About this RNA
ALIL pseudoknot: a 135-nucleotide RNA sequence from Ruania alkalisoli. The family's consensus secondary structure is taken from published work. Rfam classes the family as a cis-regulatory element.
RNA sequence: GGCCAGUUUCUUCGCGGCGGAGCUCGACCGCCCCUCGAAGAGAUAGUCGCUUUUGUCGAGGCGAACAAGGACGACGUCGUCGCUGGUCGCCGGCUCGGAGUCGAGCCCAUCUGCAAGGUACUGCAGAUGGCUCCG
Numbered sequence: 001g002g003c004c005a006g007u008u009u010c011u012u013c014g015c016g017g018c019g020g021a022g023c024u025c026g027a028c029c030g031c032c033c034c035u036c037g038a039a040g041a042g043a044u045a046g047u048c049g050c051u052u053u054u055g056u057c058g059a060g061g062c063g064a065a066c067a068a069g070g071a072c073g074a075c076g077u078c079g080u081c082g083c084u085g086g087u088c089g090c091c092g093g094c095u096c097g098g099a100g101u102c103g104a105g106c107c108c109a110u111c112u113g114c115a116a117g118g119u120a121c122u123g124c125a126g127a128u129g130g131c132u133c134c135g
Stems, first nucleotide, its partner, number of pairs: 016032005096135005107130002110127006